[Rfam]
Overview
This 141-nucleotide RNA sequence from Luteimicrobium subarcticum belongs to the Rfam family "FMN riboswitch aptamer (RFN element)". NCBI's taxonomy places the organism under Bacteria, Bacillati, Actinomycetota, Actinomycetes, Luteimicrobium. A search with the family's covariance model found it, with a score of 85 bits.
RNA sequence: ACGUGCUUCGGGGUCGGUGAAAUUCCGAGCCGGCGGUGACAGUCCGCGACCCGUGCGCCCUCCGCCCCGGCGGCAGAGCGCCCGGUUGACCUGGUGGAACUCCAGGACCGACGGUGAGAGUCCGGAUGGGAGAAGACGCGU
Numbered sequence: 001a002c003g004u005g006c007u008u009c010g011g012g013g014u015c016g017g018u019g020a021a022a023u024u025c026c027g028a029g030c031c032g033g034c035g036g037u038g039a040c041a042g043u044c045c046g047c048g049a050c051c052c053g054u055g056c057g058c059c060c061u062c063c064g065c066c067c068c069g070g071c072g073g074c075a076g077a078g079c080g081c082c083c084g085g086u087u088g089a090c091c092u093g094g095u096g097g098a099a100c101u102c103c104a105g106g107a108c109c110g111a112c113g114g115u116g117a118g119a120g121u122c123c124g125g126a127u128g129g130g131a132g133a134a135g136a137c138g139c140g141u
Stems, first nucleotide, its partner, number of pairs: 002138003006135004015027003029121002031110002033047004042108002051085002090106005112124003